[Rfam]
RNA: COG3610-DE RNA
RNA sequence: GACGAGUCGAGGAAAACGCGAGAUGCGUUCUUUGACAGAAGACAUCUUGAUUUAAAUAUCAAAGUACGGGAAGUACUGAUGUUGGGCUCCUUCGGCUGUGAAACGAAGACCCUGA
Numbered sequence: 001g002a003c004g005a006g007u008c009g010a011g012g013a014a015a016a017c018g019c020g021a022g023a024u025g026c027g028u029u030c031u032u033u034g035a036c037a038g039a040a041g042a043c044a045u046c047u048u049g050a051u052u053u054a055a056a057u058a059u060c061a062a063a064g065u066a067c068g069g070g071a072a073g074u075a076c077u078g079a080u081g082u083u084g085g086g087c088u089c090c091u092u093c094g095g096c097u098g099u100g101a102a103a104c105g106a107a108g109a110c111c112c113u114g115a
Base pairs, nucleotide, nucleotide: 006036007035008034009033010032011031012030013029016028017027018026019025041083042082043081044080045079046078048061049060050059051058063077064076065075066074067073084112085111086110090108091107092106093105094104